[Rfam]
RNA: G-CSF factor stem-loop destabilising element (SLDE)
RNA sequence: CCAGGCUACCCAACCUGGGGCCCCUGGAAGCACAGGAGGUCUCCCACGUGGGAGACAAGACAUCUGUUUAAUAUUUAAACAGCAGUGUUCCCC
Numbered sequence: 001c002c003a004g005g006c007u008a009c010c011c012a013a014c015c016u017g018g019g020g021c022c023c024c025u026g027g028a029a030g031c032a033c034a035g036g037a038g039g040u041c042u043c044c045c046a047c048g049u050g051g052g053a054g055a056c057a058a059g060a061c062a063u064c065u066g067u068u069u070a071a072u073a074u075u076u077a078a079a080c081a082g083c084a085g086u087g088u089u090c091c092c093c
Stems, first nucleotide, its partner, number of pairs: 003025003009019003033059001039056007064082008